RNA sequence: GCCGAGCUCAGUAGCGAGAGCUUGUGACCCGAGUGGGGGCAAUAAGGUGGCGUGGAUGUUUGGUGUGGGCUCUGGUCCUGGGCCUGUGAUGUGUCCUUUGCUGGCCUGCCCGUUCCAAGUUGGUAGUGGCCUGUGGGGGUUUAGGCGAAAGCUUGGGCCUCUCUGGACCUAAAGUGGCAGGAAUGGCGUGAGGCUGGCUUCACAGAGCAGCGAUCACUGCCCGCUCCCAACGGUGGGAGGAUAACAGGCCGCUGCAUCACGGGCCCGCUUGUGGCCCAGAGUCCCUCCAUAACAGACCACCAUCUUU
Numbered sequence: 001g002c003c004g005a006g007c008u009c010a011g012u013a014g015c016g017a018g019a020g021c022u023u024g025u026g027a028c029c030c031g032a033g034u035g036g037g038g039g040c041a042a043u044a045a046g047g048u049g050g051c052g053u054g055g056a057u058g059u060u061u062g063g064u065g066u067g068g069g070c071u072c073u074g075g076u077c078c079u080g081g082g083c084c085u086g087u088g089a090u091g092u093g094u095c096c097u098u099u100g101c102u103g104g105c106c107u108g109c110c111c112g113u114u115c116c117a118a119g120u121u122g123g124u125a126g127u128g129g130c131c132u133g134u135g136g137g138g139g140u141u142u143a144g145g146c147g148a149a150a151g152c153u154u155g156g157g158c159c160u161c162u163c164u165g166g167a168c169c170u171a172a173a174g175u176g177g178c179a180g181g182a183a184u185g186g187c188g189u190g191a192g193g194c195u196g197g198c199u200u201c202a203c204a205g206a207g208c209a210g211c212g213a214u215c216a217c218u219g220c221c222c223g224c225u226c227c228c229a230a231c232g233g234u235g236g237g238a239g240g241a242u243a244a245c246a247g248g249c250c251g252c253u254g255c256a257u258c259a260c261g262g263g264c265c266c267g268c269u270u271g272u273g274g275c276c277c278a279g280a281g282u283c284c285c286u287c288c289a290u291a292a293c294a295g296a297c298c299a300c301c302a303u304c305u306u307u
Stems, first nucleotide, its partner, number of pairs: 001040003004023006028037003044306007052298001054297001057294002059291001061289001063287001065285001067283002070281006077274002080266008091257003095254001102251007110240002113238005119231005125225003128168001130166002133163001135162012169174001176221005185214001187212003194205003